[Rfam]
RNA: mir-8364 microRNA precursor family
Organism: Pristionchus pacificus
RNA sequence: UCUUCAUUUCUCACACUAUCUCACCGGUCAGAGAGGCGAGAUAGCGUGUGAAAUGGAGAGA
Numbered sequence: 001u002c003u004u005c006a007u008u009u010c011u012c013a014c015a016c017u018a019u020c021u022c023a024c025c026g027g028u029c030a031g032a033g034a035g036g037c038g039a040g041a042u043a044g045c046g047u048g049u050g051a052a053a054u055g056g057a058g059a060g061a
Base pairs, nucleotide, nucleotide: 001059002058003057004056005055006054007053010050012048013047014046016044017043019041020040021039022038